[Rfam]
RNA: Bacterial large subunit ribosomal RNA, nucleotides 9 to 552
RNA sequence: UACAAACAGCUAACGGCGGAUCCCUUGGUACGCAGAGGCGAAGAAGGACGUAGUUACCGACGAUACGCUCCGGGGAGCUGGAAGCAAGCAAUGAACCGGAGGUUUCCGAAUAGGGCAACCUAACUGAACGGCUCGCUGAAUCCAUAGGCGAGUGCGAGCGAACCCGGCGAACUGAAACAUCUUAGUAGCCGGAGGAAGAGAAAGCAAAAGCGAUUCCCCCAGUAGCGGCGAGCGAAAAGGGACAAGCCUAAACCACUGACUUUAGUGAGUGGGGUAGUGGGACAACAAAACGGAACGAGAGAAGUUAGACGAAGUAGUUGAAAGCUACACCAAAGAAGGUGAAAGUCCUGUAGUCAAAAACCAAACUCAUCCAGUUGAAUCCCGAGUAGCACGGGGCACGUGAAAUCCCGUGUGAAUCAGCCAGGACCACCUGGUAAGGCUAAAUACUCCUGCGUGACCGAUAGCGAACAAGUACCGCGAGGGAAAAGUGAAAAGAACCCCAGUGAGGGGAGUGAAAUAGAACGUGAAACCGUUAGCUGACAAG
Numbered sequence: 001u002a003c004a005a006a007c008a009g010c011u012a013a014c015g016g017c018g019g020a021u022c023c024c025u026u027g028g029u030a031c032g033c034a035g036a037g038g039c040g041a042a043g044a045a046g047g048a049c050g051u052a053g054u055u056a057c058c059g060a061c062g063a064u065a066c067g068c069u070c071c072g073g074g075g076a077g078c079u080g081g082a083a084g085c086a087a088g089c090a091a092u093g094a095a096c097c098g099g100a101g102g103u104u105u106c107c108g109a110a111u112a113g114g115g116c117a118a119c120c121u122a123a124c125u126g127a128a129c130g131g132c133u134c135g136c137u138g139a140a141u142c143c144a145u146a147g148g149c150g151a152g153u154g155c156g157a158g159c160g161a162a163c164c165c166g167g168c169g170a171a172c173u174g175a176a177a178c179a180u181c182u183u184a185g186u187a188g189c190c191g192g193a194g195g196a197a198g199a200g201a202a203a204g205c206a207a208a209a210g211c212g213a214u215u216c217c218c219c220c221a222g223u224a225g226c227g228g229c230g231a232g233c234g235a236a237a238a239g240g241g242a243c244a245a246g247c248c249u250a251a252a253c254c255a256c257u258g259a260c261u262u263u264a265g266u267g268a269g270u271g272g273g274g275u276a277g278u279g280g281g282a283c284a285a286c287a288a289a290a291c292g293g294a295a296c297g298a299g300a301g302a303a304g305u306u307a308g309a310c311g312a313a314g315u316a317g318u319u320g321a322a323a324g325c326u327a328c329a330c331c332a333a334a335g336a337a338g339g340u341g342a343a344a345g346u347c348c349u350g351u352a353g354u355c356a357a358a359a360a361c362c363a364a365a366c367u368c369a370u371c372c373a374g375u376u377g378a379a380u381c382c383c384g385a386g387u388a389g390c391a392c393g394g395g396g397c398a399c400g401u402g403a404a405a406u407c408c409c410g411u412g413u414g415a416a417u418c419a420g421c422c423a424g425g426a427c428c429a430c431c432u433g434g435u436a437a438g439g440c441u442a443a444a445u446a447c448u449c450c451u452g453c454g455u456g457a458c459c460g461a462u463a464g465c466g467a468a469c470a471a472g473u474a475c476c477g478c479g480a481g482g483g484a485a486a487a488g489u490g491a492a493a494a495g496a497a498c499c500c501c502a503g504u505g506a507g508g509g510g511a512g513u514g515a516a517a518u519a520g521a522a523c524g525u526g527a528a529a530c531c532g533u534u535a536g537c538u539g540a541c542a543a544g
Stems, first nucleotide, its partner, number of pairs: 007539010022524001023488001027459002029456007036448002038159002046107003049062003068101006077089003112121003129156002131153007163194001164192005174181002204211002214444001215242004225233002245441004253272005259266001279383003283377004295370001297368003304361003308355003314328005331335001337349003389413008420435005475482002498510004
Dot-bracket structure: ......((((((((((.....((...(((((((((((((......((((((........))).....((((((...(((.......)))......))))))...)))....(((....))).......(((((((((.........))))))).)).))...((((((.....((....))......))))).).........((....))..(((((......((.....)).....))))..((((....(((((.(......).)))))......(((.((((........(.(((....(((.(((...(((((.....)))))..(...).(((.......)))...)))...)))....))).)...))))...))).....((((((((.........))))))))......(((((......)))))..))))..)..)).))))))).))...............((....)).....).........((((.....)))).............).....)))))))))).....